[Rfam]
RNA sequence: UUGAAGAUAGGAAAUGAGGUUCUUCCUUAGCCGUAUGGCUUAAACUGCUUUGAAUGCUGAUGACUUCUACCUGUUC
Numbered sequence: 001u002u003g004a005a006g007a008u009a010g011g012a013a014a015u016g017a018g019g020u021u022c023u024u025c026c027u028u029a030g031c032c033g034u035a036u037g038g039c040u041u042a043a044a045c046u047g048c049u050u051u052g053a054a055u056g057c058u059g060a061u062g063a064c065u066u067c068u069a070c071c072u073g074u075u076c
Stems, first nucleotide, its partner, number of pairs: 010026004016067006047057002